[Rfam]
RNA sequence: ACCCUCCACUUCCCUUUCCCAUUGGGCCUGAACACUGGUCUGGGUGGUUGUAAAAGGAGGAAAACAAACAUGGAAAGAGGCCUCAGUGCAUGUAGCACAUGGGCUGGUUUCAAACAGGA
Number, nucleotide and partner (000 for none) at each position: 001a000002c000003c060004c059005u058006c057007c056008a000009c000010u000011u000012c000013c000014c000015u000016u000017u000018c000019c047020c046021a045022u044023u043024g000025g040026g039027c038028c037029u000030g000031a000032a000033c000034a000035c000036u000037g028038g027039u026040c025041u000042g000043g023044g022045u021046g020047g019048u000049u000050g000051u000052a000053a000054a000055a000056g007057g006058a005059g004060g003061a000062a000063a000064a000065c000066a000067a000068a000069c000070a000071u000072g000073g000074a000075a000076a000077g000078a000079g105080g104081c103082c102083u101084c000085a000086g000087u000088g000089c000090a000091u000092g000093u000094a000095g000096c000097a000098c000099a000100u000101g083102g082103g081104c080105u079106g000107g000108u000109u000110u000111c000112a000113a000114a000115c000116a000117g000118g000119a000
RNA: Small nucleolar RNA SNORA61
Organism: Loxodonta africana